[Rfam]
RNA: mir-172 microRNA precursor family
RNA sequence: UUCACUGCGAAUGCAGCAUCAUCAAGAUUCUCAUCUCAAAAUCUUUGGCAGAGAUUGCAUCACUGCCCUUCCAUUGGGUGUGAAUCUUGAUGAUGCUGCAUCAGCUAACGA
Number, nucleotide and partner (000 for none) at each position: 001u000002u000003c000004a000005c000006u000007g000008c000009g000010a000011a101012u100013g099014c098015a097016g096017c095018a094019u093020c092021a091022u090023c089024a088025a087026g086027a085028u084029u083030c082031u000032c080033a079034u000035c000036u000037c000038a000039a000040a000041a000042u000043c000044u000045u000046u000047g000048g000049c000050a000051g000052a000053g000054a000055u000056u000057g000058c000059a000060u000061c000062a000063c000064u000065g000066c000067c000068c000069u000070u000071c000072c000073a000074u000075u000076g000077g000078g000079u033080g032081u000082g030083a029084a028085u027086c026087u025088u024089g023090a022091u021092g020093a019094u018095g017096c016097u015098g014099c013100a012101u011102c000103a000104g000105c000106u000107a000108a000109c000110g000111a000